[Rfam]
RNA: BsrG
Organism: Paenibacillus hemerocallicola
RNA sequence: UACAACUGAAUCGGCUUGCAAGGGCGGUCGGCUAAUCUCCCGGAAGGGAGGUGAUGCCUGUGGAGGCAUACCAGACAUUGACGCUUAUGAUUUCAUUCGCGACAUUGGUGGUGCUGAUCUUAUCCUUCCACAAAAAGAAAUAGACCGCCCUGGCUAAGGUAGCGGUCUAUGUUGGAUUGCCCUAUAGAAGCCGACCGCCUUUGUAGCGGUCUCGUGUACCCAAGGAGUCGGUUGCAGCCGGCUCC
Numbered sequence: 001u002a003c004a005a006c007u008g009a010a011u012c013g014g015c016u017u018g019c020a021a022g023g024g025c026g027g028u029c030g031g032c033u034a035a036u037c038u039c040c041c042g043g044a045a046g047g048g049a050g051g052u053g054a055u056g057c058c059u060g061u062g063g064a065g066g067c068a069u070a071c072c073a074g075a076c077a078u079u080g081a082c083g084c085u086u087a088u089g090a091u092u093u094c095a096u097u098c099g100c101g102a103c104a105u106u107g108g109u110g111g112u113g114c115u116g117a118u119c120u121u122a123u124c125c126u127u128c129c130a131c132a133a134a135a136a137g138a139a140a141u142a143g144a145c146c147g148c149c150c151u152g153g154c155u156a157a158g159g160u161a162g163c164g165g166u167c168u169a170u171g172u173u174g175g176a177u178u179g180c181c182c183u184a185u186a187g188a189a190g191c192c193g194a195c196c197g198c199c200u201u202u203g204u205a206g207c208g209g210u211c212u213c214g215u216g217u218a219c220c221c222a223a224g225g226a227g228u229c230g231g232u233u234g235c236a237g238c239c240g241g242c243u244c245c
Stems, first nucleotide, its partner, number of pairs: 001218004009212001012193006021151004026145001028143001033054001035052001037050005062129005068123001076089002099121001101119002163174003195209004224245009